RNA sequence: CUUCCUCAGCCUUACUCCAGGGGCUUUUAUUUCUGUAUAGUGCCCUGGCAUUGCCUGAGGAUAAAUUGAAAACAUGCUCAUUUCCCUCCCCAAUAAGAUUCUCAAUAUCCUUUGGGGCCUAUGCACUGAGCAUACAGU
Numbered sequence: 001c002u003u004c005c006u007c008a009g010c011c012u013u014a015c016u017c018c019a020g021g022g023g024c025u026u027u028u029a030u031u032u033c034u035g036u037a038u039a040g041u042g043c044c045c046u047g048g049c050a051u052u053g054c055c056u057g058a059g060g061a062u063a064a065a066u067u068g069a070a071a072a073c074a075u076g077c078u079c080a081u082u083u084c085c086c087u088c089c090c091c092a093a094u095a096a097g098a099u100u101c102u103c104a105a106u107a108u109c110c111u112u113u114g115g116g117g118c119c120u121a122u123g124c125a126c127u128g129a130g131c132a133u134a135c136a137g138u
Stems, first nucleotide, its partner, number of pairs: 003061007011053001017048006023041003027037001075132003079128002088117006095111001097109002
The record is a 138-nucleotide RNA from Eudromia elegans, which matches "Small nucleolar RNA SNORA49" in Rfam.
Taxonomically the source falls in Eudromia (Eukaryota, Opisthokonta, Coelurosauria, Aves).
It scores 119 bits against the family's covariance model.
From the family's description: The snoRNA ACA49 has no identified RNA target. NB genomic sequence 1-nt different from published.
By type it is an H/ACA-box small nucleolar RNA.